[Rfam]
RNA sequence: GUCAGAUGAUUUGAAAUGAUUCACUGAUCCUCUGUGAGGUACCAUAAUAGCAUGUUAGAGUUCUGAUGGCA
Numbered sequence: 001g002u003c004a005g006a007u008g009a010u011u012u013g014a015a016a017u018g019a020u021u022c023a024c025u026g027a028u029c030c031u032c033u034g035u036g037a038g039g040u041a042c043c044a045u046a047a048u049a050g051c052a053u054g055u056u057a058g059a060g061u062u063c064u065g066a067u068g069g070c071a
Base pairs, nucleotide, nucleotide: 001070002069003068004067
Rfam assigns this 71-nucleotide sequence from Galemys pyrenaicus to the family "Small nucleolar RNA SNORD28". The family has 20 seed sequences and 229 matches in Rfam 15.1. Its family is annotated with nucleolus and RNA processing in the Gene Ontology. The source organism's lineage runs through Eukaryota, Opisthokonta, Teleostomi, Boreoeutheria and Galemys. The family's RNA type in Rfam is C/D-box small nucleolar RNA.